[Rfam]
Record summary:
A member of the RNA family "mir-1284 microRNA precursor family" from Sciurus vulgaris, 91 nucleotides long. The family has 5 seed sequences and 113 matches in Rfam 15.1. The match comes from Rfam's covariance-model search (90 bits). Rfam links the family to the GO terms miRNA-mediated post-transcriptional gene silencing and RISC complex.

RNA sequence: GAAACUGGUUUCACGUUUUCUGCACAGACCCUGGCUUUUCUUACAUUUUAUAUAUUGGAAAGCCCUUGUUUGUGUUGGACCUGCUGGUUUC
Numbered sequence: 001g002a003a004a005c006u007g008g009u010u011u012c013a014c015g016u017u018u019u020c021u022g023c024a025c026a027g028a029c030c031c032u033g034g035c036u037u038u039u040c041u042u043a044c045a046u047u048u049u050a051u052a053u054a055u056u057g058g059a060a061a062g063c064c065c066u067u068g069u070u071u072g073u074g075u076u077g078g079a080c081c082u083g084c085u086g087g088u089u090u091c
Stems, first nucleotide, its partner, number of pairs: 002090008015081001018079003022075008033064008